This 148-nucleotide RNA sequence belongs to the Rfam family "FMN riboswitch aptamer (RFN element)". Rfam's curators write: The RFN element is a highly conserved domain that is found frequently in the 5'-untranslated regions of prokaryotic mRNAs that encode for flavin mononucleotide (FMN) biosynthesis and transport proteins. This element is a metabolite-dependent riboswitch that directly binds FMN in the absence of proteins. In Bacillus subtilis, the riboswitch most likely controls gene expression by causing premature transcription termination within the 5' untranslated region of the ribDEAHT operon and precluding access to the ribosome-binding site of ypaA mRNA.The FMN riboswitch structure, reported in present an FMN-bound six-stem junction, adopts a butterfly-like scaffold, stapled together by opposingly directed but nearly identically folded peripheral domains. A search with the family's covariance model found it, with a score of 106 bits.
RNA sequence: CGGUGUUCUCAGGGCGGGGCGGAAUUCCCCACCGGCGGUAUGUGGCGCAAGGCCACGAGCCCGCGAGCGCCUUCGGUUCGCCGGAGGGUCAGCAGAUCAGGUGAGAGGCCUGAGCCGACGGUCAUAGUCCGGAUGAAAGAGAGCAUGG
Numbered sequence: 001c002g003g004u005g006u007u008c009u010c011a012g013g014g015c016g017g018g019g020c021g022g023a024a025u026u027c028c029c030c031a032c033c034g035g036c037g038g039u040a041u042g043u044g045g046c047g048c049a050a051g052g053c054c055a056c057g058a059g060c061c062c063g064c065g066a067g068c069g070c071c072u073u074c075g076g077u078u079c080g081c082c083g084g085a086g087g088g089u090c091a092g093c094a095g096a097u098c099a100g101g102u103g104a105g106a107g108g109c110c111u112g113a114g115c116c117g118a119c120g121g122u123c124a125u126a127g128u129c130c131g132g133a134u135g136a137a138a139g140a141g142a143g144c145a146u147g148g
Stems, first nucleotide, its partner, number of pairs: 003146008017029003031128002033117002035064004059115002067093002097113005119131003